[Rfam]
RNA sequence: UUGCGAAUAUUCUCGCUGGCCUGAUAUUACUGUGAUCUGGUCAGGCUAGACAUUCGCUAGAUUAAGACCAUGCAUUGUGCCUCCAGAACUAGUUCUCUUCCCUAGUUUUGGUUUUAUAAAUGCUGGUAACAAAC
Numbered sequence: 001u002u003g004c005g006a007a008u009a010u011u012c013u014c015g016c017u018g019g020c021c022u023g024a025u026a027u028u029a030c031u032g033u034g035a036u037c038u039g040g041u042c043a044g045g046c047u048a049g050a051c052a053u054u055c056g057c058u059a060g061a062u063u064a065a066g067a068c069c070a071u072g073c074a075u076u077g078u079g080c081c082u083c084c085a086g087a088a089c090u091a092g093u094u095c096u097c098u099u100c101c102c103u104a105g106u107u108u109u110g111g112u113u114u115u116a117u118a119a120a121u122g123c124u125g126g127u128a129a130c131a132a133a134c
Stems, first nucleotide, its partner, number of pairs: 003057003016044006023037003067127004072123002083111010
Dot-bracket structure: ..(((..........((((((.(((.........))).))))))..........))).........((((.((.........((((((((((.........))))))))))..........)))))).......
Shown here is a 134-nucleotide RNA sequence from Monodelphis domestica, a member of the family "Small nucleolar RNA SNORA72". Pairs were carried over by alignment from the consensus structure, which was predicted with PFOLD. It is annotated as an H/ACA-box small nucleolar RNA. A reference for the family is Ganot et al. (1997), "The family of box ACA small nucleolar RNAs is defined by an evolutionarily conserved secondary structure and ubiquitous sequence elements essential for RNA accumulation", Genes Dev. U72 is a member of the H/ACA class of snoRNAs. The snoRNA gene is located in intron 4 of the ribosomal L30 protein gene in human, mouse and chicken.